A member of the RNA family "Group I catalytic intron" from Ophiocordyceps polyrhachis-furcata, 308 nucleotides long.
It scores 67 bits against the family's covariance model.
A reference for the family is Cech (1990), "Self-splicing of group I introns", Annu Rev Biochem.
RNA sequence: GUAAGCAAUUUUAAAAUAGCCAGUGUGUAGAAAUGAACUUUCUGCAAUAAAUCAUCAAAUUGACGGGAAAGCUCUAAAAAAAUCUAGACCAAGCAAAUAUGGUGACAUAUUAGUGGCACAGGUAAUGACUCGUGGUAUGGUAAAACAUAGAUUUAUAUACGUAAGUAUAAUGAGAGAUCCGCAGCCAAUCACCAUAAUAUUUUUUUUGUUUUGGUGUGCAGUUCAUCGACUAAUUGUUGGUUGGCUUAUAAUUAUAGUUAUAUAAUUAUUUGCUUAAGAUAUAGUCAAACCUUAUCCGAAAGGAUACA
Numbered sequence: 001g002u003a004a005g006c007a008a009u010u011u012u013a014a015a016a017u018a019g020c021c022a023g024u025g026u027g028u029a030g031a032a033a034u035g036a037a038c039u040u041u042c043u044g045c046a047a048u049a050a051a052u053c054a055u056c057a058a059a060u061u062g063a064c065g066g067g068a069a070a071g072c073u074c075u076a077a078a079a080a081a082a083u084c085u086a087g088a089c090c091a092a093g094c095a096a097a098u099a100u101g102g103u104g105a106c107a108u109a110u111u112a113g114u115g116g117c118a119c120a121g122g123u124a125a126u127g128a129c130u131c132g133u134g135g136u137a138u139g140g141u142a143a144a145a146c147a148u149a150g151a152u153u154u155a156u157a158u159a160c161g162u163a164a165g166u167a168u169a170a171u172g173a174g175a176g177a178u179c180c181g182c183a184g185c186c187a188a189u190c191a192c193c194a195u196a197a198u199a200u201u202u203u204u205u206u207u208g209u210u211u212u213g214g215u216g217u218g219c220a221g222u223u224c225a226u227c228g229a230c231u232a233a234u235u236g237u238u239g240g241u242u243g244g245c246u247u248a249u250a251a252u253u254a255u256a257g258u259u260a261u262a263u264a265a266u267u268a269u270u271u272g273c274u275u276a277a278g279a280u281a282u283a284g285u286c287a288a289a290c291c292u293u294a295u296c297c298g299a300a301a302g303g304a305u306a307c308a
Base pairs, nucleotide, nucleotide: 001012003010050242051241052240053239054238056236057235061183062182064181065180066179067178072174073173074172184222185221190216191215192214196210197209198208199207226287228286229285230284231283232282244273245272248269249268250267251266252265293306294305295304296303297302